[Rfam]
RNA sequence: GGAGGUGAUUCGGUAGCAGCGGGUGUGUUAUUAAUUAGACACCUGAGGAAAGUCCGGGCUUUAAGGGAGGCGACACUGGAUAAUGUCCAGCCUUCUUGUUUGUUCAAGAAGAGGGAAAGUGCCACAGAAAAUAUACCGCUAAAUAUUUUAGUAAGGGUGAAAAGGUGUGGUAAGAGCUCACCGGUGCUUUGGUAACAAGGCACGCAUGGUAAACCCUGUCGAAAGCAAGACCAAACAUGCCUGGUGAGUCUUGUACUCAAGAUUCUCCCUAUCUCUCUAUAUGCAUCAGGCGGGUAGGUCGCGUGAGCUGCGUAGUAAUGCGUAGCCAAGAUGGAUUGCUACCAGGCUUUUUUAAAAAAGCCUACAGAACCCGGCUUAUGAUUCACCUCCUUUU
Numbered sequence: 001g002g003a004g005g006u007g008a009u010u011c012g013g014u015a016g017c018a019g020c021g022g023g024u025g026u027g028u029u030a031u032u033a034a035u036u037a038g039a040c041a042c043c044u045g046a047g048g049a050a051a052g053u054c055c056g057g058g059c060u061u062u063a064a065g066g067g068a069g070g071c072g073a074c075a076c077u078g079g080a081u082a083a084u085g086u087c088c089a090g091c092c093u094u095c096u097u098g099u100u101u102g103u104u105c106a107a108g109a110a111g112a113g114g115g116a117a118a119g120u121g122c123c124a125c126a127g128a129a130a131a132u133a134u135a136c137c138g139c140u141a142a143a144u145a146u147u148u149u150a151g152u153a154a155g156g157g158u159g160a161a162a163a164g165g166u167g168u169g170g171u172a173a174g175a176g177c178u179c180a181c182c183g184g185u186g187c188u189u190u191g192g193u194a195a196c197a198a199g200g201c202a203c204g205c206a207u208g209g210u211a212a213a214c215c216c217u218g219u220c221g222a223a224a225g226c227a228a229g230a231c232c233a234a235a236c237a238u239g240c241c242u243g244g245u246g247a248g249u250c251u252u253g254u255a256c257u258c259a260a261g262a263u264u265c266u267c268c269c270u271a272u273c274u275c276u277c278u279a280u281a282u283g284c285a286u287c288a289g290g291c292g293g294g295u296a297g298g299u300c301g302c303g304u305g306a307g308c309u310g311c312g313u314a315g316u317a318a319u320g321c322g323u324a325g326c327c328a329a330g331a332u333g334g335a336u337u338g339c340u341a342c343c344a345g346g347c348u349u350u351u352u353u354a355a356a357a358a359a360g361c362c363u364a365c366a367g368a369a370c371c372c373g374g375c376u377u378a379u380g381a382u383u384c385a386c387c388u389c390c391u392u393u394u
Stems, first nucleotide, its partner, number of pairs: 001390008010381001012343007020045007028037001050377003054374005059225004066277002069274001071221005076090005091113001092111007114216002119214002121210003136156002138152006164182004169177001183205001184203008229300004239291006268283001270281003307326008
RNA: Bacterial RNase P class A